RNA sequence: CAUCCCUAUGAUGAAUGCUAUGCAAUCUAAAAGUAGUGGCCUGAUCUUUGAUGAUUCAGUGAUUCUGAGGGAUG
Numbered sequence: 001c002a003u004c005c006c007u008a009u010g011a012u013g014a015a016u017g018c019u020a021u022g023c024a025a026u027c028u029a030a031a032a033g034u035a036g037u038g039g040c041c042u043g044a045u046c047u048u049u050g051a052u053g054a055u056u057c058a059g060u061g062a063u064u065c066u067g068a069g070g071g072a073u074g
Stems, first nucleotide, its partner, number of pairs: 001074006
RNA: Small nucleolar RNA R21